[Rfam]
RNA: permuted transfer-messenger RNA
RNA sequence: GGUGGCUCACACCAGUGUUUCGGACAGCGGUUCGAUUCCGCUCAGCUCCAUUUCACGGGGCUGCAAUGGUUUCGACGGGGCAUGAGGAGGGUGACUGAAGCCUGCUCGGUCAGAGCAAACCCGUAACAGCGAACAACAUCGUUCGUUUCUCCCGUCAAGCUGCCCCCGUGGCCGCCUGA
Numbered sequence: 001g002g003u004g005g006c007u008c009a010c011a012c013c014a015g016u017g018u019u020u021c022g023g024a025c026a027g028c029g030g031u032u033c034g035a036u037u038c039c040g041c042u043c044a045g046c047u048c049c050a051u052u053u054c055a056c057g058g059g060g061c062u063g064c065a066a067u068g069g070u071u072u073c074g075a076c077g078g079g080g081c082a083u084g085a086g087g088a089g090g091g092u093g094a095c096u097g098a099a100g101c102c103u104g105c106u107c108g109g110u111c112a113g114a115g116c117a118a119a120c121c122c123g124u125a126a127c128a129g130c131g132a133a134c135a136a137c138a139u140c141g142u143u144c145g146u147u148u149c150u151c152c153c154g155u156c157a158a159g160c161u162g163c164c165c166c167c168g169u170g171g172c173c174g175c176c177u178g179a
Base pairs, nucleotide, nucleotide: 001096002095003094005092016082017081018080020078021077022076026042027041028040029039030038043063044062045061046060047059048058049057